The family of this 76-nucleotide sequence from Homo sapiens is "mir-3190 microRNA precursor family". Rfam 15.1 lists 42 matches to the family in 21 species. The source organism's lineage runs through Eukaryota, Bilateria, Primates, Simiiformes and Homo. Its family is annotated with miRNA-mediated post-transcriptional gene silencing and RISC complex in the Gene Ontology.

RNA sequence: GGGGUCACCUGUCUGGCCAGCUACGUCCCCACGGCCCUUGUCAGUGUGGAAGGUAGACGGCCAGAGAGGUGACCCC
Numbered sequence: 001g002g003g004g005u006c007a008c009c010u011g012u013c014u015g016g017c018c019a020g021c022u023a024c025g026u027c028c029c030c031a032c033g034g035c036c037c038u039u040g041u042c043a044g045u046g047u048g049g050a051a052g053g054u055a056g057a058c059g060g061c062c063a064g065a066g067a068g069g070u071g072a073c074c075c076c
Base pairs, nucleotide, nucleotide: 001076002075003074004073005072006071007070008069009068010067012065013064014063015062016061017060018059021056022055023054024053028049029048030046031045032044